[Rfam]
RNA sequence: GGAGAAGGACAGAUGAUCGCCGCUCGCCCUGGUUCGCCGGGGACGGGGGGAGGAAAGUCCGGGCUCCACAGGACAGGAUGGUUCCUAACGGGAACCGGGGGUGACCCCAGGGACAGUGCCACAGAGAGGAAACCGCCCGCAAGUUUUUCCAGCGGGUAAGGGUGAAAGGGUGAGGUAAGAGCUCACCAGUUCCGGCGGCGACGGCGGAAGCUAGGUAAACCCCAUCCGGAGCAAGGCCUAAUAGGGGAACGUUUGAGGGUGGUCCGCCCGAAGUUCCCGGGUUGGCCGCUUGAGGUUGUCGGCAACGGCAAUCCUAGAUGAAUGAUCAUCAUCCUGUUUGCAGGUAACUGCGCAGGAGACAGAACCCGGCUUACGGCCUUCUCCAGCC
Numbered sequence: 001g002g003a004g005a006a007g008g009a010c011a012g013a014u015g016a017u018c019g020c021c022g023c024u025c026g027c028c029c030u031g032g033u034u035c036g037c038c039g040g041g042g043a044c045g046g047g048g049g050g051a052g053g054a055a056a057g058u059c060c061g062g063g064c065u066c067c068a069c070a071g072g073a074c075a076g077g078a079u080g081g082u083u084c085c086u087a088a089c090g091g092g093a094a095c096c097g098g099g100g101g102u103g104a105c106c107c108c109a110g111g112g113a114c115a116g117u118g119c120c121a122c123a124g125a126g127a128g129g130a131a132a133c134c135g136c137c138c139g140c141a142a143g144u145u146u147u148u149c150c151a152g153c154g155g156g157u158a159a160g161g162g163u164g165a166a167a168g169g170g171u172g173a174g175g176u177a178a179g180a181g182c183u184c185a186c187c188a189g190u191u192c193c194g195g196c197g198g199c200g201a202c203g204g205c206g207g208a209a210g211c212u213a214g215g216u217a218a219a220c221c222c223c224a225u226c227c228g229g230a231g232c233a234a235g236g237c238c239u240a241a242u243a244g245g246g247g248a249a250c251g252u253u254u255g256a257g258g259g260u261g262g263u264c265c266g267c268c269c270g271a272a273g274u275u276c277c278c279g280g281g282u283u284g285g286c287c288g289c290u291u292g293a294g295g296u297u298g299u300c301g302g303c304a305a306c307g308g309c310a311a312u313c314c315u316a317g318a319u320g321a322a323u324g325a326u327c328a329u330c331a332u333c334c335u336g337u338u339u340g341c342a343g344g345u346a347a348c349u350g351c352g353c354a355g356g357a358g359a360c361a362g363a364a365c366c367c368g369g370c371u372u373a374c375g376g377c378c379u380u381c382u383c384c385a386g387c388c
Stems, first nucleotide, its partner, number of pairs: 001384008010375001012330007020050002023047004028042003055372003059369005064231004071265004076227005081095005096110001097108004111222002116220002118216003133161002135157006143149001169187006189211001190209005196203002235287004245278006257269004294313008
A member of the RNA family "Bacterial RNase P class A" from Pelovirga terrestris, 388 nucleotides long. Lineage of the source: Bacteria > Pseudomonadati > Thermodesulfobacteriota > Geobacteraceae > Pelovirga.